[Rfam]
RNA: Bacterial RNase P class A
RNA sequence: AGAGUAAAUUGGUCAAUCGCAUCGAAAGAUGAGGAAAGUCUGCGCUCCAUAGAGCAAGGCGCCAGCUAACGGCUGGUGGGGGCGACCCUAAGGAAAGUGCAACAGAAAUAUACCGCCUCGAAAGAGGUAAGGGUGGAAAGGCGAGGUAAGAGCUCACCGUGAUAUUAGUAAUAAUAUUGACCUGUAAACCCCGCUUGGAGCAAGACCAAAAUAGGAAUAACAAAUGUUGCUCGCAUUUGCCGGUAGGUAGGUCGCUUGAGUUUAUUGGUGACAAUAAACCUAGAUAGAUGAUUGACAAAACAGAACGCAGCUUAUAGAUUUACUCAAAUU
Numbered sequence: 001a002g003a004g005u006a007a008a009u010u011g012g013u014c015a016a017u018c019g020c021a022u023c024g025a026a027a028g029a030u031g032a033g034g035a036a037a038g039u040c041u042g043c044g045c046u047c048c049a050u051a052g053a054g055c056a057a058g059g060c061g062c063c064a065g066c067u068a069a070c071g072g073c074u075g076g077u078g079g080g081g082g083c084g085a086c087c088c089u090a091a092g093g094a095a096a097g098u099g100c101a102a103c104a105g106a107a108a109u110a111u112a113c114c115g116c117c118u119c120g121a122a123a124g125a126g127g128u129a130a131g132g133g134u135g136g137a138a139a140g141g142c143g144a145g146g147u148a149a150g151a152g153c154u155c156a157c158c159g160u161g162a163u164a165u166u167a168g169u170a171a172u173a174a175u176a177u178u179g180a181c182c183u184g185u186a187a188a189c190c191c192c193g194c195u196u197g198g199a200g201c202a203a204g205a206c207c208a209a210a211a212u213a214g215g216a217a218u219a220a221c222a223a224a225u226g227u228u229g230c231u232c233g234c235a236u237u238u239g240c241c242g243g244u245a246g247g248u249a250g251g252u253c254g255c256u257u258g259a260g261u262u263u264a265u266u267g268g269u270g271a272c273a274a275u276a277a278a279c280c281u282a283g284a285u286a287g288a289u290g291a292u293u294g295a296c297a298a299a300a301c302a303g304a305a306c307g308c309a310g311c312u313u314a315u316a317g318a319u320u321u322a323c324u325c326a327a328a329u330u
Base pairs, nucleotide, nucleotide: 002325003324004323005322006321007320008319009318010317011315012296013295014294015293016292017291018290020031021030022029023028036313037312038311040310041309042308043307044306045200046199047198048197052232053231054230055229057196058195059194060193061192062076063075064074065073066072077091078089079088080087081086092191093190097189098188099185100184101183113132114131115128116127117126118125119124140158141157143155144154145153159181160179161178162177163176164175165174166173167172204253205252206251207250211244212243214241215240223237224236225235226234227233260279261278262277263276264275265274266273267272